[Rfam]
RNA sequence: AGUCAUAUGCUUGUCUCAAAGAUUAAGCCAUGCAUGUCUAAGUAUAAGCAACCUAUACUGUGAAACUGCGAAUGGCUCAUUAAAUCAGUUAUCGUUUAUUUGAUAGUACCUUACUACUUGGAUACCUGUGGUAAUUCUAGAGCUAAUACAUGCUAAAAGCCUCGACUUCGGAAGAGGCGUAUUUAUUAGAUAAAAAACCAAUGCCCUUCGGGGCUCCCUGGUGAUUCAUAAUAACUUAACGAAUCGCAUGGCCUUGCGCCGGCGAUGGUUCAUUCAAAUUUCUGCCCUAUCAACUUUCGAUUGUAGGGUAUUGGCCUACAAUGGUUUCUACGGGUAACGGGGAAUUAGGGUUCUAUUCCGGAGAGGGAGCCUGAGAAACGGCUACCACAUCCAAGGAAGGCAGCAGGCGCGCAAAUUACCCAAUCCUAAUUCAGGGAGGUAGUGACAAGAAAUACUGAUGCAGAGCCCAUUCGGGUUUUGCAAUUGGAAUGAGUACAAUUUAAAUCCCUUAACGAGGAACAAUUGGAGGGCAAGUCUGGUGCCAGCAGCCGCGGUAAUUCCAGCUCCAAUAGCGUAUAUUAAAGUUGUUG
Numbered sequence: 001a002g003u004c005a006u007a008u009g010c011u012u013g014u015c016u017c018a019a020a021g022a023u024u025a026a027g028c029c030a031u032g033c034a035u036g037u038c039u040a041a042g043u044a045u046a047a048g049c050a051a052c053c054u055a056u057a058c059u060g061u062g063a064a065a066c067u068g069c070g071a072a073u074g075g076c077u078c079a080u081u082a083a084a085u086c087a088g089u090u091a092u093c094g095u096u097u098a099u100u101u102g103a104u105a106g107u108a109c110c111u112u113a114c115u116a117c118u119u120g121g122a123u124a125c126c127u128g129u130g131g132u133a134a135u136u137c138u139a140g141a142g143c144u145a146a147u148a149c150a151u152g153c154u155a156a157a158a159g160c161c162u163c164g165a166c167u168u169c170g171g172a173a174g175a176g177g178c179g180u181a182u183u184u185a186u187u188a189g190a191u192a193a194a195a196a197a198c199c200a201a202u203g204c205c206c207u208u209c210g211g212g213g214c215u216c217c218c219u220g221g222u223g224a225u226u227c228a229u230a231a232u233a234a235c236u237u238a239a240c241g242a243a244u245c246g247c248a249u250g251g252c253c254u255u256g257c258g259c260c261g262g263c264g265a266u267g268g269u270u271c272a273u274u275c276a277a278a279u280u281u282c283u284g285c286c287c288u289a290u291c292a293a294c295u296u297u298c299g300a301u302u303g304u305a306g307g308g309u310a311u312u313g314g315c316c317u318a319c320a321a322u323g324g325u326u327u328c329u330a331c332g333g334g335u336a337a338c339g340g341g342g343a344a345u346u347a348g349g350g351u352u353c354u355a356u357u358c359c360g361g362a363g364a365g366g367g368a369g370c371c372u373g374a375g376a377a378a379c380g381g382c383u384a385c386c387a388c389a390u391c392c393a394a395g396g397a398a399g400g401c402a403g404c405a406g407g408c409g410c411g412c413a414a415a416u417u418a419c420c421c422a423a424u425c426c427u428a429a430u431u432c433a434g435g436g437a438g439g440u441a442g443u444g445a446c447a448a449g450a451a452a453u454a455c456u457g458a459u460g461c462a463g464a465g466c467c468c469a470u471u472c473g474g475g476u477u478u479u480g481c482a483a484u485u486g487g488a489a490u491g492a493g494u495a496c497a498a499u500u501u502a503a504a505u506c507c508c509u510u511a512a513c514g515a516g517g518a519a520c521a522a523u524u525g526g527a528g529g530g531c532a533a534g535u536c537u538g539g540u541g542c543c544a545g546c547a548g549c550c551g552c553g554g555u556a557a558u559u560c561c562a563g564c565u566c567c568a569a570u571a572g573c574g575u576a577u578a579u580u581a582a583a584g585u586u587g588u589u590g
Base pairs, nucleotide, nucleotide: 001580002579003578005577006576007575008574009573010572011571014450015449016448020443021410027408028407029406031405032404033403036069037068041067042066043065048061049060076363077362078361086284087283088282091279092278095277096276101272102271103270117152119150120149126142127141129139130138131137159178160177161176162175163174166171183234184233185232186231187230188229197222198221199220200219204213205212206211244265245264246263247262249261250260251259252258286334287333288332293325294324295323300322301321302320303319304318305317306316307315338360339359340358341357342353343352344351345350365386366385368383369382370381388399390397391396416441418440419439420438424436425435426434427433456486457485458484459482460481461480462479463478464477465476466475467474468473493513494512495510497509523569524568525567526566527565528564536563537562538561539560545552546551